This 100-nucleotide sequence from Actinacidiphila oryziradicis belongs to the Rfam family "Glycine riboswitch aptamer".
[Rfam]
RNA sequence: AAACCCCAUGCGGGAGAGUCCUGCGACGACGCUGUCGCAAGGCGCCGAAGGAGCAACUCCUCCCCGGAAUCUCUCAGGCACCCGGUACCGCAUGGGCUAG
Numbered sequence: 001a002a003a004c005c006c007c008a009u010g011c012g013g014g015a016g017a018g019u020c021c022u023g024c025g026a027c028g029a030c031g032c033u034g035u036c037g038c039a040a041g042g043c044g045c046c047g048a049a050g051g052a053g054c055a056a057c058u059c060c061u062c063c064c065c066g067g068a069a070u071c072u073c074u075c076a077g078g079c080a081c082c083c084g085g086u087a088c089c090g091c092a093u094g095g096g097c098u099a100g
Stems, first nucleotide, its partner, number of pairs: 006095008020042003044079003047075002051073003057067002
Annotation
This family represents the bacterial glycine riboswitch. The match comes from Rfam's covariance-model search (63 bits).